This 102-nucleotide RNA from Cohnella fermenti belongs to the Rfam family "Purine riboswitch aptamer". Rfam links the family to the GO term purine nucleobase biosynthetic process. The organism belongs to Cohnella, within Bacteria. Rfam's curators write: Riboswitches are metabolite binding domains within certain messenger RNAs that serve as precision sensors for their corresponding targets. Allosteric rearrangement of mRNA structure is mediated by ligand binding, and this results in modulation of gene expression. A class of riboswitches that selectively recognises guanine and becomes saturated at concentrations as low as 5 nM. In Bacillus subtilis, this mRNA motif is located on at least five separate transcriptional units that together encode 17 genes that are mostly involved in purine transport and purine nucleotide biosynthesis. It has also been shown that some members of this family are specific for adenine instead. Hence this family are termed purine riboswitches. Pairs were carried over by alignment from the consensus structure, which is taken from published work.

[Rfam]
RNA sequence: CCGUAAAAAAGCUGAUUCGCUCGUAUAUAGUCGGGGAUAAGGCCCGAUCGUCUCUACCCGGAAACCUUAAAUUACCGGACUACGAGCUCUGACGAUGGCGAA
Numbered sequence: 001c002c003g004u005a006a007a008a009a010a011g012c013u014g015a016u017u018c019g020c021u022c023g024u025a026u027a028u029a030g031u032c033g034g035g036g037a038u039a040a041g042g043c044c045c046g047a048u049c050g051u052c053u054c055u056a057c058c059c060g061g062a063a064a065c066c067u068u069a070a071a072u073u074a075c076c077g078g079a080c081u082a083c084g085a086g087c088u089c090u091g092a093c094g095a096u097g098g099c100g101a102a
Base pairs, nucleotide, nucleotide: 019087020086021085022084023083024082025081030048031047032046033045034044035043058078059077060076061075063073064072